Tymovirus/Pomovirus/Furovirus tRNA-like 3' UTR element: an 83-nucleotide sequence from Pteridovirus maydis. Rfam describes the family as follows. This family represents a tRNA-like structure found in the 3' UTR of Tymoviruses, Pomoviruses and Furovirus. Taxonomically the source falls in Pteridovirus maydis (Viruses, Riboviria, Orthornavirae, Pteridovirus). Rfam links the family to the GO term regulation of translation.
RNA sequence: GGCGGAGAGGAGGUCUCUCGCCCGCCAAUACACGGCGGGUUUCUGGGGUGCAACUCCCCCUCUACCGGAGAGUAUCCGGCCCA
Numbered sequence: 001g002g003c004g005g006a007g008a009g010g011a012g013g014u015c016u017c018u019c020g021c022c023c024g025c026c027a028a029u030a031c032a033c034g035g036c037g038g039g040u041u042u043c044u045g046g047g048g049u050g051c052a053a054c055u056c057c058c059c060c061u062c063u064a065c066c067g068g069a070g071a072g073u074a075u076c077c078g079g080c081c082c083a
Stems, first nucleotide, its partner, number of pairs: 005019005012051001020040007045059004060072003065079005